[Rfam]
RNA sequence: GGAGGUCGGCGGUGGACGGGCCGCUCGCCAACCGGGUCAGGUCGGGAACGAAGCAGCCCUAACGAUUCCGGUCCGGGUCAUUUCGCCGGCCUCCUAA
Numbered sequence: 001g002g003a004g005g006u007c008g009g010c011g012g013u014g015g016a017c018g019g020g021c022c023g024c025u026c027g028c029c030a031a032c033c034g035g036g037u038c039a040g041g042u043c044g045g046g047a048a049c050g051a052a053g054c055a056g057c058c059c060u061a062a063c064g065a066u067u068c069c070g071g072u073c074c075g076g077g078u079c080a081u082u083u084c085g086c087c088g089g090c091c092u093c094c095u096a097a
Base pairs, nucleotide, nucleotide: 004091005090006089007088008087009084011082012081013080014079017075018074019073020072021071022070023067025065026064027063034059035058036057037056042051043050044049
The record is a 97-nucleotide sequence from Acuticoccus mangrovi, which matches "Bacterial small signal recognition particle RNA" in Rfam.
Its Rfam clan is "SRP clan".
Taxonomically the source falls in Acuticoccus (Bacteria, Pseudomonadati, Pseudomonadota, Alphaproteobacteria).
For this family Rfam cites "SRPDB: Signal Recognition Particle Database" (Rosenblad et al., Nucleic Acids Res, 2003).
Rfam links the family to the GO terms SRP-dependent cotranslational protein targeting to membrane, signal sequence recognition and signal recognition particle, plasma membrane targeting.
It scores 62 bits against the family's covariance model.